RNA sequence: ACACGAGAAAGGAGGUGGUCCGACGUUGAACAGCUAUAGGACUCGUGAGGUGGCUGUCCGCUGACGGACAGCACACGGACCACCGUGUGACGUGUGUCUGUCGGUGAAUACCAGGCAGUCACCGGCCCCCUGACGCUCCCGAGUGCCGGUCCGACUCGGGCCCGAACGGCUGACGACGUUCGGGAGUCGCGUCGGGGGCUUCUUACU
Numbered sequence: 001a002c003a004c005g006a007g008a009a010a011g012g013a014g015g016u017g018g019u020c021c022g023a024c025g026u027u028g029a030a031c032a033g034c035u036a037u038a039g040g041a042c043u044c045g046u047g048a049g050g051u052g053g054c055u056g057u058c059c060g061c062u063g064a065c066g067g068a069c070a071g072c073a074c075a076c077g078g079a080c081c082a083c084c085g086u087g088u089g090a091c092g093u094g095u096g097u098c099u100g101u102c103g104g105u106g107a108a109u110a111c112c113a114g115g116c117a118g119u120c121a122c123c124g125g126c127c128c129c130c131u132g133a134c135g136c137u138c139c140c141g142a143g144u145g146c147c148g149g150u151c152c153g154a155c156u157c158g159g160g161c162c163c164g165a166a167c168g169g170c171u172g173a174c175g176a177c178g179u180u181c182g183g184g185a186g187u188c189g190c191g192u193c194g195g196g197g198g199c200u201u202c203u204u205a206c207u
Stems, first nucleotide, its partner, number of pairs: 014058006059106007067098004124201002127198010138184008

This 207-nucleotide RNA sequence from Prauserella muralis belongs to the Rfam family "Actinobacteria sRNA Ms_IGR-5". Taxonomically the source falls in Prauserella (Bacteria, Actinomycetes, Pseudonocardiales, Pseudonocardiaceae). A search with the family's covariance model found it, with a score of 91 bits.